[Rfam]
RNA sequence: AAACAGCCCCCUAUGUUUUGAUUCUUUGGCAGUUUUGAACCCCCAGUCCAGUGUUGACUCGGUCAUCGCUGACGUGGCACCCUAAGUGAGGUGCCACAUGUCAAAAUUUUUUUUUUUAUUUUGCCUUGGGGGGCCAAAACUGCCAAAGAAUCAAAACAUAAGGGGCUGUUU
Dot-bracket structure: ((.(((((...((((((((((((((((((((((((((..((((((..........................((.(((((((........)))))))...)).........................))))))..))))))))))))))))))))))))))...))))).))
A member of the RNA family "MIR2619 microRNA precursor family" from Medicago truncatula, 171 nucleotides long. The family's consensus secondary structure was predicted with RNAalifold. The match comes from Rfam's covariance-model search (120 bits). Gene Ontology terms of the family: miRNA-mediated post-transcriptional gene silencing and RISC complex. The source organism's lineage runs through Eukaryota, Tracheophyta, Fabaceae, Trifolieae and Medicago.